About this RNA
Rfam assigns this 74-nucleotide RNA sequence from Scleropages formosus to the family "mir-148/mir-152 microRNA precursor family". A reference for the family is Lagos-Quintana et al. (2002), "Identification of tissue-specific microRNAs from mouse", Curr Biol. A search with the family's covariance model found it, with a score of 75 bits.
RNA sequence: CUGAGGUGGAGUUCUGUUAUACACUCAGGCUGUGACUCCCGGCAAGUCAGUGCAUCACAGAACUUUGUCUUGGG
Numbered sequence: 001c002u003g004a005g006g007u008g009g010a011g012u013u014c015u016g017u018u019a020u021a022c023a024c025u026c027a028g029g030c031u032g033u034g035a036c037u038c039c040c041g042g043c044a045a046g047u048c049a050g051u052g053c054a055u056c057a058c059a060g061a062a063c064u065u066u067g068u069c070u071u072g073g074g
Base pairs, nucleotide, nucleotide: 004070005069006068007067008066009065010064011063012062013061014060015059016058022052023051024050025049028048029047030046031045